[Rfam]
RNA sequence: AGCCUAAACCUUGAGUAUUUUGCUUGGGGCAUGGCUGAAAACCCCGUGAGAGAUACUGAACCCUACGUUCAGCAACUCUCACGGGUCAUGCCUCGAAAGGGGCGUGGGGCUGCAAAGCCU
Numbered sequence: 001a002g003c004c005u006a007a008a009c010c011u012u013g014a015g016u017a018u019u020u021u022g023c024u025u026g027g028g029g030c031a032u033g034g035c036u037g038a039a040a041a042c043c044c045c046g047u048g049a050g051a052g053a054u055a056c057u058g059a060a061c062c063c064u065a066c067g068u069u070c071a072g073c074a075a076c077u078c079u080c081a082c083g084g085g086u087c088a089u090g091c092c093u094c095g096a097a098a099g100g101g102g103c104g105u106g107g108g109g110c111u112g113c114a115a116a117g118c119c120u
Base pairs, nucleotide, nucleotide: 001036002035003034004033009029010028011027012026013025014024015023016022017021043085044084045083046082047081048080049079050078051077052076056072057071058070059069060068061067087106088105089104090103091102092101093100094099107120108119109118110117111116
Rfam assigns this 120-nucleotide sequence to the family "LOOT RNA". The family's RNA type in Rfam is small RNA.